[Rfam]
RNA: mir-544 microRNA precursor family
Nucleotides: 098
Stems, first nucleotide, its partner, number of pairs: 003091003009085003014081001016079001018077003021073003025069005031063003
Number, partner (000 for none) and nucleotide at each position: 001000a002000u003091c004090a005089c006000c007000u008000g009085g010084g011083a012000a013000u014081c015000c016079u017000c018077u019076u020075a021073a022072a023071a024000a025069g026068c027067a028066g029065a030000c031063u032062c033061u034000g035000a036000g037000u038000c039000a040000g041000c042000a043000g044000u045000c046000c047000c048000a049000g050000g051000g052000c053000a054000g055000a056000g057000c058000c059000u060000a061033g062032g063031a064000u065029u066028c067027u068026g069025c070000a071023u072022u073021u074000c075020u076019a077018g078000c079016a080000a081014g082000u083011u084010c085009u086000c087000a088000g089005g090004u091003g092000a093000u094000g095000c096000u097000a098000c